[Rfam]
RNA sequence: ACAAACUUCAUCCAUGCUUUUCGUAUAAUUCCGGGAAUGGGCCCGGAAGUCUCUACGAGGUCACCGUAAAUGAUCUGGCUACGAAAAGAAGAAGCGCCGAU
Numbered sequence: 001a002c003a004a005a006c007u008u009c010a011u012c013c014a015u016g017c018u019u020u021u022c023g024u025a026u027a028a029u030u031c032c033g034g035g036a037a038u039g040g041g042c043c044c045g046g047a048a049g050u051c052u053c054u055a056c057g058a059g060g061u062c063a064c065c066g067u068a069a070a071u072g073a074u075c076u077g078g079c080u081a082c083g084a085a086a087a088g089a090a091g092a093a094g095c096g097c098c099g100a101u
Stems, first nucleotide, its partner, number of pairs: 018087008029048007058076006

Description
The record is a 101-nucleotide RNA sequence from Paenibacillus faecis, which matches "Purine riboswitch aptamer" in Rfam.